[Rfam]
RNA sequence: GACAAAGUAGCCAAGUGGUUAAGGCAGUGGACUUCUAAUCCAUUGUACUGUGCAUGUGUGGGUUUGAAUCCCAUCCUUGUCA
Numbered sequence: 001g002a003c004a005a006a007g008u009a010g011c012c013a014a015g016u017g018g019u020u021a022a023g024g025c026a027g028u029g030g031a032c033u034u035c036u037a038a039u040c041c042a043u044u045g046u047a048c049u050g051u052g053c054a055u056g057u058g059u060g061g062g063u064u065u066g067a068a069u070c071c072c073a074u075c076c077u078u079g080u081c082a
Stems, first nucleotide, its partner, number of pairs: 001081005007075001010025003027043005058074005